[Rfam]
RNA sequence: GUGUUAUCAAGAAAGGUAGAGGGACUAGACCCAAUGAAACCUUGGCAACCCUUGCCCUGAAGCAUUUUGGGGUCUUACAAUCUUAACAUAGAAAGAUUUAAAAGAUUUUGAAACAAGUUCAAGGUAACGAAGGUGCUACAUUCUACUGCGUUUUCCAGUUUUUUGGAAAGUAUCAGACAGAUAACGA
Numbered sequence: 001g002u003g004u005u006a007u008c009a010a011g012a013a014a015g016g017u018a019g020a021g022g023g024a025c026u027a028g029a030c031c032c033a034a035u036g037a038a039a040c041c042u043u044g045g046c047a048a049c050c051c052u053u054g055c056c057c058u059g060a061a062g063c064a065u066u067u068u069g070g071g072g073u074c075u076u077a078c079a080a081u082c083u084u085a086a087c088a089u090a091g092a093a094a095g096a097u098u099u100a101a102a103a104g105a106u107u108u109u110g111a112a113a114c115a116a117g118u119u120c121a122a123g124g125u126a127a128c129g130a131a132g133g134u135g136c137u138a139c140a141u142u143c144u145a146c147u148g149c150g151u152u153u154u155c156c157a158g159u160u161u162u163u164u165g166g167a168a169a170g171u172a173u174c175a176g177a178c179a180g181a182u183a184a185c186g187a
Base pairs, nucleotide, nucleotide: 002186003185004184005183006182007181008180013043014042015041016040017039021032022031023030026145027144028143029142044137045136046135047134049133050132051129053127141179146176147175148174

Rfam assigns this 187-nucleotide sequence from Neotamlana nanhaiensis to the family "SAM riboswitch aptamer (S box leader)". Its family is annotated with regulation of gene expression in the Gene Ontology.